L31-Gammaproteobacteria ribosomal protein leader: a 54-nucleotide RNA from Dickeya fangzhongdai. The source organism's lineage runs through Bacteria, Pseudomonadati, Gammaproteobacteria, Enterobacterales and Dickeya. The family's consensus secondary structure is taken from published work. Rfam's curators put it in the seed alignment.
[Rfam]
RNA sequence: CGUGUGGUGUCUGGCGGAACAGGGCUGGAUAGCGACACGGCCUUAAACAGAGGU
Dot-bracket structure: (((((.((..(((((........)))))...)).)))))...............